[Rfam]
RNA sequence: AGGUGUCGCUCUGGCUCGCUCCGAAGAUUUUUUUCGCUUUCUUUGUGGAAAGUCCUCGACCAUCACAUUUUUGUGUUGGCAUCAAGUGUCUGAAUUUUAAUCUAAAUUCACGAUGACUUCCGGGUAUUUUUCGGGCUGAGAUGGAUUUCAUUUCCUGAGCUCUAGUUUUUCUUCCUGGGAUAAUCGAUGUUAGGCCAAAAAAAGAUAUACGCUUUUCGUGUGUAUCUUUGUAAACUAAAGUAAUGCGAGUAGCGUGUGUGUUUGUUUUCGAACAACCCACGUCAACAAAACGAGGCUUACACGUGCCGAUACC
Numbered sequence: 001a002g003g004u005g006u007c008g009c010u011c012u013g014g015c016u017c018g019c020u021c022c023g024a025a026g027a028u029u030u031u032u033u034u035c036g037c038u039u040u041c042u043u044u045g046u047g048g049a050a051a052g053u054c055c056u057c058g059a060c061c062a063u064c065a066c067a068u069u070u071u072u073g074u075g076u077u078g079g080c081a082u083c084a085a086g087u088g089u090c091u092g093a094a095u096u097u098u099a100a101u102c103u104a105a106a107u108u109c110a111c112g113a114u115g116a117c118u119u120c121c122g123g124g125u126a127u128u129u130u131u132c133g134g135g136c137u138g139a140g141a142u143g144g145a146u147u148u149c150a151u152u153u154c155c156u157g158a159g160c161u162c163u164a165g166u167u168u169u170u171c172u173u174c175c176u177g178g179g180a181u182a183a184u185c186g187a188u189g190u191u192a193g194g195c196c197a198a199a200a201a202a203a204g205a206u207a208u209a210c211g212c213u214u215u216u217c218g219u220g221u222g223u224a225u226c227u228u229u230g231u232a233a234a235c236u237a238a239a240g241u242a243a244u245g246c247g248a249g250u251a252g253c254g255u256g257u258g259u260g261u262u263u264g265u266u267u268u269c270g271a272a273c274a275a276c277c278c279a280c281g282u283c284a285a286c287a288a289a290a291c292g293a294g295g296c297u298u299a300c301a302c303g304u305g306c307c308g309a310u311a312c313c
Stems, first nucleotide, its partner, number of pairs: 002313007009305001011303001014250006022045006050298003054295004078090004091110006112185003120178005133162004143155003252282005
Dot-bracket structure: .((((((((.(..((((((..((((((............))))))....[[[.[[[[....................((((.....))))((((((........)))))).(((.....(((((........((((......(((.......)))...))))...........)))))....)))...........................................................)))))).(((((.....................))))).........]]]]]]]....).).)))))))
RNA: RNase MRP
Organism: Dermatophagoides farinae